[Rfam]
RNA sequence: GCCGCCGUCGUGGGGGAGUAGUCUCUCUCUUGAGGCAGGUAUCAACAUGAUUGGCCAACCGGCCAUGGUGCCUGCGACCCGUCUGAUCGGGUUUGACGAGACCUGUGACACGCAGCUGCCAACCGAGGGUGGGGGUGCUUGCGUGUCAUUGGUAACGUAAACCCACC
Numbered sequence: 001g002c003c004g005c006c007g008u009c010g011u012g013g014g015g016g017a018g019u020a021g022u023c024u025c026u027c028u029c030u031u032g033a034g035g036c037a038g039g040u041a042u043c044a045a046c047a048u049g050a051u052u053g054g055c056c057a058a059c060c061g062g063c064c065a066u067g068g069u070g071c072c073u074g075c076g077a078c079c080c081g082u083c084u085g086a087u088c089g090g091g092u093u094u095g096a097c098g099a100g101a102c103c104u105g106u107g108a109c110a111c112g113c114a115g116c117u118g119c120c121a122a123c124c125g126a127g128g129g130u131g132g133g134g135g136u137g138c139u140u141g142c143g144u145g146u147c148a149u150u151g152g153u154a155a156c157g158u159a160a161a162c163c164c165a166c167c
Base pairs, nucleotide, nucleotide: 026033027032035075036074037073038072039071040070041069042068043067044066052065053064054063055062056061081167
This 167-nucleotide RNA from Halopseudomonas salegens belongs to the Rfam family "Manganese Mn2+ riboswitch aptamer (yybP-ykoY)". The base pairs follow the family's consensus structure. Lineage of the source: Bacteria > Pseudomonadati > Pseudomonadota > Pseudomonadaceae > Halopseudomonas. Rfam's curators write: This RNA was originally discovered in E. coli during a large scale screen and was named SraF. The family was later found to exist upstream of related families of protein genes in many bacteria, including the the yybP and ykoK genes in B. subtilis. A search with the family's covariance model found it, with a score of 49 bits.